[Rfam]
RNA: FMN riboswitch aptamer (RFN element)
RNA sequence: CCCCGUUCUCAGGGCGGGGCGAAAUUCCCCACCGGCGGUAUGCGGGCAUGACCCGUAAGCCCGCGAGCGGCCCCAAUCUUUUUUGGGGUGACAAGCAGAUCUGGUGAGAGACCAGAGCCGACGGUCACAGUCCGGAUGAAAGAGAACGUGU
Numbered sequence: 001c002c003c004c005g006u007u008c009u010c011a012g013g014g015c016g017g018g019g020c021g022a023a024a025u026u027c028c029c030c031a032c033c034g035g036c037g038g039u040a041u042g043c044g045g046g047c048a049u050g051a052c053c054c055g056u057a058a059g060c061c062c063g064c065g066a067g068c069g070g071c072c073c074c075a076a077u078c079u080u081u082u083u084u085g086g087g088g089u090g091a092c093a094a095g096c097a098g099a100u101c102u103g104g105u106g107a108g109a110g111a112c113c114a115g116a117g118c119c120g121a122c123g124g125u126c127a128c129a130g131u132c133c134g135g136a137u138g139a140a141a142g143a144g145a146a147c148g149u150g151u
Base pairs, nucleotide, nucleotide: 004148005147006146007145008144009143010142017029018028019027031131032130033120034119035064036063037062038061059118060117067096068095100116101115102114103113104112122134123133124132